[Rfam]
RNA sequence: GGAAUUCGAAACAGCGCACUCCUCCUCCCAGCGCUGUUUCGAUAGGAUUGGCAACACUCCUCCUCCCGGUUGCCAAUCAUUCUUAUGACGCCCGCCGGAUCUCCUCCCUCGGCGGGCGUCGUUC
Numbered sequence: 001g002g003a004a005u006u007c008g009a010a011a012c013a014g015c016g017c018a019c020u021c022c023u024c025c026u027c028c029c030a031g032c033g034c035u036g037u038u039u040c041g042a043u044a045g046g047a048u049u050g051g052c053a054a055c056a057c058u059c060c061u062c063c064u065c066c067c068g069g070u071u072g073c074c075a076a077u078c079a080u081u082c083u084u085a086u087g088a089c090g091c092c093c094g095c096c097g098g099a100u101c102u103c104c105u106c107c108c109u110c111g112g113c114g115g116g117c118g119u120c121g122u123u124c
Stems, first nucleotide, its partner, number of pairs: 007041003011037007046078010088119011
RNA: Alphaproteobacterial ar14
Organism: Ensifer fredii